[Rfam]
Nucleotides: 071
Stems, first nucleotide, its partner, number of pairs: 001071006009064001012030005021056004032041001046063004
Number, partner (000 for none) and nucleotide at each position: 001071u002070g003069a004068a005067a006066u007000c008000a009064g010000a011000g012030g013029a014028c015027g016026g017000a018000a019000c020000g021056g022055g023054c024053a025000a026016c027015c028014g029013u030012c031000a032041c033000c034000c035000u036000a037000g038000u039000u040000g041032g042000a043000g044000a045000u046063g047062u048061g049060g050000a051000a052000a053024u054023g055022u056021c057000a058000c059000c060049c061048c062047a063046c064009c065000u066006a067005u068004u069003u070002c071001a